SAM riboswitch aptamer (S box leader): a 114-nucleotide RNA from Aquibacillus koreensis.
The match comes from Rfam's covariance-model search (84 bits).
Taxonomically the source falls in Aquibacillus (Bacteria, Bacillati, Bacillota, Caryophanales).
[Rfam]
RNA sequence: UUCUUAUCCAGAGUAGGCGGAGGGACUGGCCCGAUGAAGCUCGGCAACCGGAUUUACAUUUUUGUAGGUCACGGUGCUAAUUCCAGCAGAAUUUUUAUUUCUGAUAGAUGAGAG
Numbered sequence: 001u002u003c004u005u006a007u008c009c010a011g012a013g014u015a016g017g018c019g020g021a022g023g024g025a026c027u028g029g030c031c032c033g034a035u036g037a038a039g040c041u042c043g044g045c046a047a048c049c050g051g052a053u054u055u056a057c058a059u060u061u062u063u064g065u066a067g068g069u070c071a072c073g074g075u076g077c078u079a080a081u082u083c084c085a086g087c088a089g090a091a092u093u094u095u096u097a098u099u100u101c102u103g104a105u106a107g108a109u110g111a112g113a114g
Stems, first nucleotide, its partner, number of pairs: 001114008013042001016041003022032003026086004043078004048074002050070002053067001082106001087103005